[Rfam]
RNA sequence: ACAGUGGAAGCCGAAAAACUGUGUUUUAAGAGUAGGCA
Numbered sequence: 001a002c003a004g005u006g007g008a009a010g011c012c013g014a015a016a017a018a019c020u021g022u023g024u025u026u027u028a029a030g031a032g033u034a035g036g037c038a
Base pairs, nucleotide, nucleotide: 002021003020004019005018010037011036012035